The record is a 121-nucleotide RNA sequence from Rhizobium leguminosarum, which matches "Alphaproteobacterial ar14" in Rfam.
Rfam's curators write: Smr14C2 was renamed NfeR1 (Nodule Formation Efficiency RNA) highly expressed in salt stress and during the symbiotic interaction on legume roots.
Its family is annotated with biological process involved in symbiotic interaction in the Gene Ontology.
It is annotated as a small RNA.
[Rfam]
RNA sequence: GAGAUUCGCAGCCGCGCACUCCUCCUCCCAAGCGCGCUGCGAUAAGACUGGCAACACUCCUCCUCCCAGUUGCCAGUCAUCAUAAUGCGCCCGCCGGAUCCUCCCCCGGCGGGCGUUUUAU
Numbered sequence: 001g002a003g004a005u006u007c008g009c010a011g012c013c014g015c016g017c018a019c020u021c022c023u024c025c026u027c028c029c030a031a032g033c034g035c036g037c038u039g040c041g042a043u044a045a046g047a048c049u050g051g052c053a054a055c056a057c058u059c060c061u062c063c064u065c066c067c068a069g070u071u072g073c074c075a076g077u078c079a080u081c082a083u084a085a086u087g088c089g090c091c092c093g094c095c096g097g098a099u100c101c102u103c104c105c106c107c108g109g110c111g112g113g114c115g116u117u118u119u120a121u
Stems, first nucleotide, its partner, number of pairs: 007041003011037002014035004046078010087116011